[Rfam]
Nucleotides: 223
Base pairs, nucleotide, nucleotide: 013209014208015207016206017205018204019203020202024198025197026196027195028194029193036186057162058161060159061158062157066153067152068151069150074145075144076143077142078141079140
Number, partner (000 for none) and nucleotide at each position: 001000a002000u003000a004000u005000a006000u007000g008000g009000a010000g011000u012000g013209g014208a015207g016206c017205u018204c019203c020202u021000u022000g023000a024198a025197g026196u027195c028194c029193a030000a031000a032000a033000g034000a035000g036186g037000u038000u039000c040000u041000u042000u043000c044000a045000g046000g047000g048000u049000g050000g051000a052000u053000u054000g055000u056000g057162c058161u059000g060159c061158u062157g063000a064000g065000u066153u067152a068151u069150g070000g071000a072000u073000c074145c075144c076143a077142c078141a079140g080000u081000c082000c083000u084000a085000u086000a087000u088000a089000u090000c091000u092000u093000c094000a095000u096000c097000a098000u099000c100000a101000u102000c103000u104000u105000c106000a107000u108000a109000u110000a111000u112000a113000u114000a115000u116000u117000u118000u119000u120000a121000u122000a123000u124000a125000a126000a127000u128000a129000a130000g131000a132000u133000u134000a135000u136000a137000g138000a139000c140079u141078u142077g143076u144075g145074g146000a147000u148000u149000g150069c151068a152067u153066a154000a155000a156000u157062c158061a159060g160000g161058a162057g163000c164000u165000c166000c167000a168000u169000u170000a171000c172000u173000c174000c175000u176000u177000c178000u179000g180000u181000u182000a183000g184000a185000u186036c187000u188000u189000u190000c191000u192000u193029u194028g195027g196026a197025u198024u199000g200000a201000a202020g203019g204018g205017a206016g207015c208014u209013c210000u211000a212000c213000c214000c215000u216000a217000u218000a219000u220000c221000u222000a223000c
The family of this 223-nucleotide RNA from Cannabis sativa is "MIR159 microRNA precursor family". Gene Ontology terms of the family: RISC complex and miRNA-mediated post-transcriptional gene silencing.